[Rfam]
RNA: Small nucleolar RNA SNORD72
RNA sequence: AGCUUGUCAAUUAUGUUUCUUGUUAAAAAUGUCUGAACAUAUGAACUCGAUAGUGAAUUCAGUGCAUUACUGAGAGAAACU
Number, nucleotide and partner (000 for none) at each position: 001a000002g080003c000004u078005u077006g000007u075008c074009a000010a000011u000012u000013a000014u000015g000016u000017u000018u000019c000020u000021u000022g000023u000024u000025a000026a000027a000028a000029a000030u000031g000032u000033c000034u000035g000036a000037a000038c000039a000040u000041a000042u000043g000044a000045a000046c000047u000048c000049g000050a000051u000052a000053g000054u000055g000056a000057a000058u000059u000060c000061a000062g000063u000064g000065c000066a000067u000068u000069a000070c000071u000072g000073a000074g008075a007076g000077a005078a004079a000080c002081u000